[Rfam]
RNA sequence: UAUCAAACCCACACUCCUCGCAAACCGAGACCUAUAGGGAGUAUAAUACUUCGUCUCUAAUAUCCAGUAGUGAGGGAUUACUGGAAAUAAGUUUCGCA
Numbered sequence: 001u002a003u004c005a006a007a008c009c010c011a012c013a014c015u016c017c018u019c020g021c022a023a024a025c026c027g028a029g030a031c032c033u034a035u036a037g038g039g040a041g042u043a044u045a046a047u048a049c050u051u052c053g054u055c056u057c058u059a060a061u062a063u064c065c066a067g068u069a070g071u072g073a074g075g076g077a078u079u080a081c082u083g084g085a086a087a088u089a090a091g092u093u094u095c096g097c098a
Stems, first nucleotide, its partner, number of pairs: 014041005020035001027057005063085007
Rfam assigns this 98-nucleotide RNA to the family "PhotoRC-II RNA". The sequence is in the family's curated seed alignment. Rfam classes the family as a cis-regulatory element.